The family of this 599-nucleotide part of an RNA from Vitis vinifera is "Eukaryotic large subunit ribosomal RNA". The match comes from Rfam's covariance-model search (2529 bits).
RNA sequence: CGGGGAAAGAAGACCCUGUUGAGCUUGACUCUAGUUCGACUUUGUGAAAUGACUUGAGAGGUGUAGGAUAAGUGGGAGCUGAAAACGGUGAAAGUGAAAUACCACUACUUUUAACGUUAUUUUACUUAUUCUGUGAAUCGGAGGCGGGGAGCAUCCCCUUCUUUUGGACCCAAGGUUGGCCCAAUGCGUCGAUUCAAGCGGAAGACAUUGUCAGGUGGGGAGUUUGGCUGGGGUGACACAUCUGUUAAAAGAUAACGCAGGUGUCCUAAGAUGAGCUUAACGAGAACAAAAAUCUCGUGUAGAACAAAAUGGUAAAAGCUCGUUUGAUUCUGAUUUCCAGUACGAAUACGAACGUUGAAAGCGUAGCCUAUCGAUCCUUUAAACCUUCGAAAUUUGAAUCUAGAGGUGUCAUAAAAGUUACCACAUGGAUAAUUGGCUUAUGGCAGCCAAGCAUUCAUAGCAACGUUGCUUUUUUAUCCUUCGAUGUCGGCUCUUUCUAUCAUUGUGAAGUAGAAUUCACCAAGUGUUGGAUUGUUCACUUACCAAUAGGGAACGUGAGUUAGGUUUAGACCGUCAUGAGACAGGUUAGUUUUAUCCUA
Numbered sequence: 001c002g003g004g005g006a007a008a009g010a011a012g013a014c015c016c017u018g019u020u021g022a023g024c025u026u027g028a029c030u031c032u033a034g035u036u037c038g039a040c041u042u043u044g045u046g047a048a049a050u051g052a053c054u055u056g057a058g059a060g061g062u063g064u065a066g067g068a069u070a071a072g073u074g075g076g077a078g079c080u081g082a083a084a085a086c087g088g089u090g091a092a093a094g095u096g097a098a099a100u101a102c103c104a105c106u107a108c109u110u111u112u113a114a115c116g117u118u119a120u121u122u123u124a125c126u127u128a129u130u131c132u133g134u135g136a137a138u139c140g141g142a143g144g145c146g147g148g149g150a151g152c153a154u155c156c157c158c159u160u161c162u163u164u165u166g167g168a169c170c171c172a173a174g175g176u177u178g179g180c181c182c183a184a185u186g187c188g189u190c191g192a193u194u195c196a197a198g199c200g201g202a203a204g205a206c207a208u209u210g211u212c213a214g215g216u217g218g219g220g221a222g223u224u225u226g227g228c229u230g231g232g233g234u235g236a237c238a239c240a241u242c243u244g245u246u247a248a249a250a251g252a253u254a255a256c257g258c259a260g261g262u263g264u265c266c267u268a269a270g271a272u273g274a275g276c277u278u279a280a281c282g283a284g285a286a287c288a289a290a291a292a293u294c295u296c297g298u299g300u301a302g303a304a305c306a307a308a309a310u311g312g313u314a315a316a317a318g319c320u321c322g323u324u325u326g327a328u329u330c331u332g333a334u335u336u337c338c339a340g341u342a343c344g345a346a347u348a349c350g351a352a353c354g355u356u357g358a359a360a361g362c363g364u365a366g367c368c369u370a371u372c373g374a375u376c377c378u379u380u381a382a383a384c385c386u387u388c389g390a391a392a393u394u395u396g397a398a399u400c401u402a403g404a405g406g407u408g409u410c411a412u413a414a415a416a417g418u419u420a421c422c423a424c425a426u427g428g429a430u431a432a433u434u435g436g437c438u439u440a441u442g443g444c445a446g447c448c449a450a451g452c453a454u455u456c457a458u459a460g461c462a463a464c465g466u467u468g469c470u471u472u473u474u475u476a477u478c479c480u481u482c483g484a485u486g487u488c489g490g491c492u493c494u495u496u497c498u499a500u501c502a503u504u505g506u507g508a509a510g511u512a513g514a515a516u517u518c519a520c521c522a523a524g525u526g527u528u529g530g531a532u533u534g535u536u537c538a539c540u541u542a543c544c545a546a547u548a549g550g551g552a553a554c555g556u557g558a559g560u561u562a563g564g565u566u567u568a569g570a571c572c573g574u575c576a577u578g579a580g581a582c583a584g585g586u587u588a589g590u591u592u593u594a595u596c597c598u599a
Base pairs, nucleotide, nucleotide: 003598004597005596007593008592015427017425018424020423021422022419023418024417025416026415028223029222030221031220035215036214038212039211040210044125045124046123047122048121049120050119051118052117053116054114055113056112057111058110059109060108071106072105073104074103075102078089079088129203130202131201132200133199140195141194142193146158147157148156149155150154174190175189176188226239227237229235240262241261242260243259244258245257265366271323272322273321274320275319276318277303278302280298281297282296283295284294285293304313305312328352329351330350333347334346335345336344356361377405378404379403380402381401386398387397388396436477440474442470443469444468445467446466447465451461452460488563489561490560491559492558493555494552495551496550497549498548501526502525505520506519507518508517509516528542529541530540532538569587570586571585572584573582574581575580
The family's consensus secondary structure is taken from published work.